drz-agam-1 ribozyme: a 79-nucleotide RNA from Hermetia illucens. A reference for the family is Webb et al. (2009), "Widespread occurrence of self-cleaving ribozymes", Science. The base pairs follow the family's consensus structure, which is taken from published work. The source organism's lineage runs through Eukaryota, Protostomia, Insecta, Endopterygota and Hermetia. Rfam links the family to the GO term catalytic activity.
[Rfam]
Nucleotides: 079
Base pairs, nucleotide, nucleotide: 013079014078016076017075018074019073020072021033022032023031045067046066049063050062051061053059
Number, partner (000 for none) and nucleotide at each position: 001000u002000g003000c004000u005000a006000c007000c008000a009000a010000a011000c012000c013079c014078u015000a016076u017075c018074u019073c020072c021033a022032c023031c024000u025000c026000c027000a028000c029000g030000u031023g032022g033021u034000g035000a036000c037000c038000g039000c040000u041000g042000g043000c044000a045067g046066c047000u048000c049063u050062u051061u052000c053059u054000u055000a056000a057000c058000g059053a060000a061051a062050a063049g064000c065000u066046g067045u068000a069000g070000a071000a072020g073019g074018a075017g076016g077000a078014g079013g